HIV Ribosomal frameshift signal: a 52-nucleotide RNA sequence from Lentivirus humimdef1. The family's consensus secondary structure is taken from published work. It is one of the family's seed sequences. On this family, see Bao et al., Elife 2020: "mRNA stem-loops can pause the ribosome by hindering A-site tRNA binding". Gene Ontology term of the family: viral translational frameshifting. The family's RNA type in Rfam is frameshift element.
RNA sequence: UUUUUUAAAGAAGAUCUGGCCUUCCCACAGUGGAAGGCCAAAGAAUUUUUUU
Numbered sequence: 001u002u003u004u005u006u007a008a009a010g011a012a013g014a015u016c017u018g019g020c021c022u023u024c025c026c027a028c029a030g031u032g033g034a035a036g037g038c039c040a041a042a043g044a045a046u047u048u049u050u051u052u
Base pairs, nucleotide, nucleotide: 008052009051010050011049012048013047014046015042017040018039019038020037021036022035023034024033025032